[Rfam]
RNA sequence: CCAACGGCUCUUUUCAGAGCCACCCACCUAAUCCGAAAAAGCGCA
Numbered sequence: 001c002c003a004a005c006g007g008c009u010c011u012u013u014u015c016a017g018a019g020c021c022a023c024c025c026a027c028c029u030a031a032u033c034c035g036a037a038a039a040a041g042c043g044c045a
Base pairs, nucleotide, nucleotide: 006021007020008019009018010017011016

This 45-nucleotide RNA from Erpetoichthys calabaricus belongs to the Rfam family "Histone 3' UTR stem-loop". The source organism's lineage runs through Eukaryota, Chordata, Vertebrata, Polypteridae and Erpetoichthys. The base pairs follow the family's consensus structure, which is taken from published work. The match comes from Rfam's covariance-model search (38 bits).